[Rfam]
RNA sequence: CUCUGUUCCAGAAUGGUUCAGGGCGGGAGGAG
Number, nucleotide and partner (000 for none) at each position: 001c023002u022003c021004u020005g019006u000007u000008c016009c015010a014011g000012a000013a000014u010015g009016g008017u000018u000019c005020a004021g003022g002023g001024c000025g000026g000027g000028a000029g000030g000031a000032g000
The family of this 32-nucleotide sequence from Ureibacillus thermosphaericus is "L31-Firmicutes ribosomal protein leader". The family's consensus secondary structure is taken from published work. Rfam's curators put it in the seed alignment. The family's RNA type in Rfam is cis-regulatory leader. The family is grouped with related families in Rfam's "Ribosomal Protein L31 Leader clan".